[Rfam]
This 102-nucleotide RNA from Shouchella oshimensis belongs to the Rfam family "Purine riboswitch aptamer". Pairs were carried over by alignment from the consensus structure, which is taken from published work. A search with the family's covariance model found it, with a score of 79 bits.
RNA sequence: AAAUCAUAUAAGCAUUUCAGUCGUAUAUACGCAGAGAUAAGGUCUGCACGUUUCUACCGAGCUACCGUAAAUAGCUUGACUACGAUGUGAGAGGCAUUGUUU
Numbered sequence: 001a002a003a004u005c006a007u008a009u010a011a012g013c014a015u016u017u018c019a020g021u022c023g024u025a026u027a028u029a030c031g032c033a034g035a036g037a038u039a040a041g042g043u044c045u046g047c048a049c050g051u052u053u054c055u056a057c058c059g060a061g062c063u064a065c066c067g068u069a070a071a072u073a074g075c076u077u078g079a080c081u082a083c084g085a086u087g088u089g090a091g092a093g094g095c096a097u098u099g100u101u102u
Base pairs, nucleotide, nucleotide: 020086021085022084023083024082025081031047032046033045034044035043058078059077060076061075062074063073064072